[Rfam]
RNA: Small nucleolar RNA snoR53Y
Organism: Hibiscus syriacus
RNA sequence: GUUCCCAAUGAUGCUUGAAAUUUUAAACCAUGCCUAAUGCUGAUAAUCCAGUGAUUAUAAAGUAUCAUUGAUAUAUUCUGAGGGAACU
Number, nucleotide and partner (000 for none) at each position: 001g087002u086003u085004c084005c083006c000007a000008a000009u000010g000011a000012u000013g000014c000015u000016u000017g000018a000019a000020a000021u000022u000023u000024u000025a000026a000027a000028c000029c000030a000031u000032g000033c000034c000035u000036a000037a000038u000039g000040c000041u000042g000043a000044u000045a000046a000047u000048c000049c000050a000051g000052u000053g000054a000055u000056u000057a000058u000059a000060a000061a000062g000063u000064a000065u000066c000067a000068u000069u000070g000071a000072u000073a000074u000075a000076u000077u000078c000079u000080g000081a000082g000083g005084g004085a003086a002087c001088u000